[Rfam]
RNA: Murine norovirus 3'UTR
RNA sequence: ACGUCCCCCUUGCCAGUCUCGGGUGGGCGCUUGCCCUCCCUUCGUGGGGGUUCCUGGUCUCCGCGUGAUCACACGCCGGCGACCCAAGGCACCUACACGAACGGACGGUUUGUGUCCUUCCCAAAGAUUGGAAGUAGCAGGGCAUAGGUUGGAAGAGAAACCUUUUGUGAAAAUGAUUUCUGCUUACUGCUUCUUUUCUUUUGUAGUAAUUAGAUGCAUUUU
Numbered sequence: 001a002c003g004u005c006c007c008c009c010u011u012g013c014c015a016g017u018c019u020c021g022g023g024u025g026g027g028c029g030c031u032u033g034c035c036c037u038c039c040c041u042u043c044g045u046g047g048g049g050g051u052u053c054c055u056g057g058u059c060u061c062c063g064c065g066u067g068a069u070c071a072c073a074c075g076c077c078g079g080c081g082a083c084c085c086a087a088g089g090c091a092c093c094u095a096c097a098c099g100a101a102c103g104g105a106c107g108g109u110u111u112g113u114g115u116c117c118u119u120c121c122c123a124a125a126g127a128u129u130g131g132a133a134g135u136a137g138c139a140g141g142g143c144a145u146a147g148g149u150u151g152g153a154a155g156a157g158a159a160a161c162c163u164u165u166u167g168u169g170a171a172a173a174u175g176a177u178u179u180c181u182g183c184u185u186a187c188u189g190c191u192u193c194u195u196u197u198c199u200u201u202u203g204u205a206g207u208a209a210u211u212a213g214a215u216g217c218a219u220u221u222u
Stems, first nucleotide, its partner, number of pairs: 006142003010137003013131007021122003025117006033109003037105003041101006048094004053089003056084004061079003065076003146163005170222006179214004184209007